Rfam assigns this 127-nucleotide RNA sequence from unidentified eubacterium SCB49 to the family "SAM riboswitch aptamer (S box leader)".

[Rfam]
RNA sequence: AUGUUAUCAAGAAAGGAGGAGGGAUUAGACCCUAUGAUACCUUAGCAACCCUUGUGCUCCCUAGCGAUAGGAUACAAGAAGGUGCUACAUUCUACAAAGAUUUUUUAAAAUCUGCGAUAGAUAACGA
Numbered sequence: 001a002u003g004u005u006a007u008c009a010a011g012a013a014a015g016g017a018g019g020a021g022g023g024a025u026u027a028g029a030c031c032c033u034a035u036g037a038u039a040c041c042u043u044a045g046c047a048a049c050c051c052u053u054g055u056g057c058u059c060c061c062u063a064g065c066g067a068u069a070g071g072a073u074a075c076a077a078g079a080a081g082g083u084g085c086u087a088c089a090u091u092c093u094a095c096a097a098a099g100a101u102u103u104u105u106u107a108a109a110a111u112c113u114g115c116g117a118u119a120g121a122u123a124a125c126g127a
Base pairs, nucleotide, nucleotide: 002126003125004124005123006122007121008120013043014042015041016040021032022031023030026094027093028092029091044086045085046084047083049082050081051078052077053076054075055074056073090119095116098113099112100111101110102109
The match comes from Rfam's covariance-model search (68 bits). The organism belongs to Bacteroidota, within Bacteria.